The family of this 72-nucleotide RNA sequence from Esox lucius is "mir-24 microRNA precursor family". For this family Rfam cites "Identification of novel genes coding for small expressed RNAs" (Lagos-Quintana et al., Science, 2001). It scores 62 bits against the family's covariance model. About the family: This family represents the microRNA (miRNA) mir-24 family. miRNAs are transcribed as ~70nt precursors (modelled here) and subsequently processed by the Dicer enzyme to give a ~22nt product. In this case the mature sequence comes from the 3' arm of the precursor. Gene Ontology terms of the family: miRNA-mediated post-transcriptional gene silencing and RISC complex.
RNA sequence: UACUCUGGUGUCUACUGAUCUGGAAUCAGUGUGUGUCUGUGGACAACUGGCUCAGUUCAGCAGGAACCGGAG
Numbered sequence: 001u002a003c004u005c006u007g008g009u010g011u012c013u014a015c016u017g018a019u020c021u022g023g024a025a026u027c028a029g030u031g032u033g034u035g036u037c038u039g040u041g042g043a044c045a046a047c048u049g050g051c052u053c054a055g056u057u058c059a060g061c062a063g064g065a066a067c068c069g070g071a072g
Stems, first nucleotide, its partner, number of pairs: 003072004008067002011064003015060004020055004026050005